Rfam assigns this 133-nucleotide sequence from Rousettus aegyptiacus to the family "Small nucleolar RNA U109". The source organism's lineage runs through Eukaryota, Opisthokonta, Deuterostomia, Laurasiatheria and Rousettus. Gene Ontology terms of the family: nucleolus and RNA processing. By type it is an H/ACA-box small nucleolar RNA. It scores 114 bits against the family's covariance model.
[Rfam]
Nucleotides: 133
Stems, first nucleotide, its partner, number of pairs: 004057001006055003014040001016038006071126004083113001088107001090105005
Number, partner (000 for none) and nucleotide at each position: 001000u002000u003000u004057c005000u006055u007054g008053u009000g010000u011000a012000u013000g014040u015000c016038u017037g018036u019035u020034c021033c022000u023000u024000a025000u026000u027000c028000c029000u030000u031000u032000g033021g034020g035019a036018g037017c038016a039000a040014g041000a042000a043000u044000a045000c046000a047000u048000c049000c050000a051000u052000a053008a054007c055006a056000u057004g058000c059000u060000a061000c062000a063000u064000u065000u066000a067000a068000a069000a070000a071126g072125g073124a074123g075000u076000u077000c078000u079000c080000a081000g082000g083113g084000c085000u086000g087000c088107c089000a090105a091104c092103c093102u094101u095000a096000c097000a098000g099000u100000a101094g102093a103092g104091g105090u106000g107088g108000a109000a110000u111000a112000a113083u114000a115000g116000u117000a118000u119000a120000u121000u122000u123074c124073u125072c126071c127000c128000a129000c130000a131000u132000a133000a